Shown here is a 138-nucleotide RNA sequence from Bacteroides sp. OM05-12, a member of the family "Bacteroidete tryptophan peptide leader RNA". Pairs were carried over by alignment from the consensus structure, which is taken from published work. The match comes from Rfam's covariance-model search (93 bits).

RNA sequence: CGCAAAUAAAUCAUAAAGCAAUGAAGGUGAUAAUGGUAAAUACAUAUUGGUGGUGGCACUCUUUACAACUCCGACAGUCGUAAGGGAGCAGCUCCUCAUGUAUAUAUACUAACCAAAAAUAUUAAAAAGAGGCCUGUC
Numbered sequence: 001c002g003c004a005a006a007u008a009a010a011u012c013a014u015a016a017a018g019c020a021a022u023g024a025a026g027g028u029g030a031u032a033a034u035g036g037u038a039a040a041u042a043c044a045u046a047u048u049g050g051u052g053g054u055g056g057c058a059c060u061c062u063u064u065a066c067a068a069c070u071c072c073g074a075c076a077g078u079c080g081u082a083a084g085g086g087a088g089c090a091g092c093u094c095c096u097c098a099u100g101u102a103u104a105u106a107u108a109c110u111a112a113c114c115a116a117a118a119a120u121a122u123u124a125a126a127a128a129g130a131g132g133c134c135u136g137u138c
Base pairs, nucleotide, nucleotide: 036109037108038107040105041104042103044101045100046099047098049095050094052092056089057088059086060085061084066080068078069077070076